This 58-nucleotide sequence belongs to the Rfam family "Glutamine riboswitch aptamer (glnA leader)".
[Rfam]
RNA sequence: AUCGUUCAUCUCAUAAUUUGAGUGAGACGGAAGUAGGUAAAAGCCGAAGGAACGCAGU
Numbered sequence: 001a002u003c004g005u006u007c008a009u010c011u012c013a014u015a016a017u018u019u020g021a022g023u024g025a026g027a028c029g030g031a032a033g034u035a036g037g038u039a040a041a042a043g044c045c046g047a048a049g050g051a052a053c054g055c056a057g058u
Base pairs, nucleotide, nucleotide: 003054004053005052006051007050009027010026011025012024013023030055036045037044038043